[Rfam]
Record summary:
The record is a 366-nucleotide RNA sequence from Fulvivirga lutea, which matches "Bacterial RNase P class A" in Rfam. It is annotated as a ribozyme. Gene Ontology terms of the family: tRNA processing, ribonuclease P activity and dimeric ribonuclease P complex. Lineage of the source: Bacteria > Pseudomonadati > Cytophagia > Fulvivirgaceae > Fulvivirga.

RNA sequence: AAAGUAAGUCGUCUUGCCGUGUCCCGGUUAUACCGGGAUAAGGAAAGUCCGGGCAACAUAGAGCAUCGUGCUUCCUAACAGGAAGGUGCUGAGCAAUCAGCAACAGAAUGUGCCACAGAAAACAAACUACCCUGACUUGUCAGGGAAAAGGUGAAAAGGUGAGGUAAGAGCUCACCGGCUAGGUAGUGAUAUCUGGUGCUAGGUAAACCUCACGAGUUGAAAGACCAAAUAAGCUGGUAUUUGAGGGCUGCUCGUCCAAAUCAGUGGGUAGGUCGUUUGAUCCUGAUGGUGACGUCAGGGCUAGAUAAAUGGCAAGAAUCCACCUUUUGGUGGAUACAGAACCCGGCUUAUAGACUUACAUUUUUU
Dot-bracket structure: ((.(((((((((((((((.(((((((((...)))))))))....[[[.[[[[[((((...[[[[.((((((((((.....)))))(((((((....)))))).)((...(((((............((.((((((....))))))...)).......((((((.......))))))(((((((((....)))))))).)..)))..)))))))))))))...((((......((((((......((((.]]]]))))..)))))).....))))......((((((((....))))))))..........)))))))........................]]]]]]]].).))))))).))....